T-box leader: a 289-nucleotide RNA sequence from Geomicrobium sp. JCM 19038. Lineage of the source: Bacteria > Bacillati > Bacilli > Caryophanales > Geomicrobium. The match comes from Rfam's covariance-model search (97 bits).

RNA sequence: UGUAAACUGAUGAAUGGAUAAGUAAACGAUCACGUAUGUUCAGAGAGCCGGGUUGCUGGGAGCCGGUCGUAAACGAGUCGUUGAAUAUGGUCCUGGAGGUUUAAUUUUCGAGUGCAGUAAUUGUGCAUAAGGGAAUUACGUGUGUCAGCGUUAAUGACAAGUUGCUAACGAUUAAUGUUAGUGCUGUUGAGCUUCUUAGAAGUAGGUGUAGGAACGAGUAUGUUCUGGCGAUGCUAUGGAUAAGAAGGAAGCAGGGUGGUACCACGUGAGUAAUCCUCUCGUCCCUUCG
Numbered sequence: 001u002g003u004a005a006a007c008u009g010a011u012g013a014a015u016g017g018a019u020a021a022g023u024a025a026a027c028g029a030u031c032a033c034g035u036a037u038g039u040u041c042a043g044a045g046a047g048c049c050g051g052g053u054u055g056c057u058g059g060g061a062g063c064c065g066g067u068c069g070u071a072a073a074c075g076a077g078u079c080g081u082u083g084a085a086u087a088u089g090g091u092c093c094u095g096g097a098g099g100u101u102u103a104a105u106u107u108u109c110g111a112g113u114g115c116a117g118u119a120a121u122u123g124u125g126c127a128u129a130a131g132g133g134a135a136u137u138a139c140g141u142g143u144g145u146c147a148g149c150g151u152u153a154a155u156g157a158c159a160a161g162u163u164g165c166u167a168a169c170g171a172u173u174a175a176u177g178u179u180a181g182u183g184c185u186g187u188u189g190a191g192c193u194u195c196u197u198a199g200a201a202g203u204a205g206g207u208g209u210a211g212g213a214a215c216g217a218g219u220a221u222g223u224u225c226u227g228g229c230g231a232u233g234c235u236a237u238g239g240a241u242a243a244g245a246a247g248g249a250a251g252c253a254g255g256g257u258g259g260u261a262c263c264a265c266g267u268g269a270g271u272a273a274u275c276c277u278c279u280c281g282u283c284c285c286u287u288c289g
Base pairs, nucleotide, nucleotide: 007099008098016093017092018091025082026081027080028079029078030077036070037069038068047067048066049065050064051063103137104136105135106134107133108132109131139150140149141148192247193246194245195244196243197242198241253286254285255284256283264282265281266280268278269277270276